Overview: Rfam assigns this 37-nucleotide RNA sequence to the family "abiF RNA".
[Rfam]
RNA sequence: CCCGCCACGCCUCUCAAUGAUGCGUACCAUGGCGGGG
Numbered sequence: 001c002c003c004g005c006c007a008c009g010c011c012u013c014u015c016a017a018u019g020a021u022g023c024g025u026a027c028c029a030u031g032g033c034g035g036g037g
Stems, first nucleotide, its partner, number of pairs: 001036006008024003
About the family: Actinobacteria, Bacteroidetes, Clostridia, Proteobacteria, one Clostridia phage.